Lysine riboswitch aptamer: a 205-nucleotide sequence from Clostridium ljungdahlii. Taxonomically the source falls in Clostridium (Bacteria, Bacillota, Clostridia, Eubacteriales). It scores 99 bits against the family's covariance model.
RNA sequence: CCUUAGGGUAGAGGUGCUGUAACUAUCAGUAUUUAUUUUUAGUCGGCGGACGUUGAAAAAUAAAGAAAGGAGCUGCAGCCGAAAAAACUAGUUUGGCGAAACUGUUUUUGGCUUUGUACAUAAUAUGUUCAAAGUUGUCAUUGAAAAGGCAUAUUCAUUUUAUAUAACUUAAUGGAUAUACUUUUAGUGGAGAGCUACAAAGGUA
Numbered sequence: 001c002c003u004u005a006g007g008g009u010a011g012a013g014g015u016g017c018u019g020u021a022a023c024u025a026u027c028a029g030u031a032u033u034u035a036u037u038u039u040u041a042g043u044c045g046g047c048g049g050a051c052g053u054u055g056a057a058a059a060a061u062a063a064a065g066a067a068a069g070g071a072g073c074u075g076c077a078g079c080c081g082a083a084a085a086a087a088c089u090a091g092u093u094u095g096g097c098g099a100a101a102c103u104g105u106u107u108u109u110g111g112c113u114u115u116g117u118a119c120a121u122a123a124u125a126u127g128u129u130c131a132a133a134g135u136u137g138u139c140a141u142u143g144a145a146a147a148g149g150c151a152u153a154u155u156c157a158u159u160u161u162a163u164a165u166a167a168c169u170u171a172a173u174g175g176a177u178a179u180a181c182u183u184u185u186a187g188u189g190g191a192g193a194g195c196u197a198c199a200a201a202g203g204u205a
Base pairs, nucleotide, nucleotide: 008198009197010196011195016079017078018077019076020075021074023072024071032064033063034062035061036060037059038058039057083109084108085107086106087105089104090103091102092101093100094099110136111135112134113133114132115131116130118128119127120126138190139189140188141187142186143185144184145183146182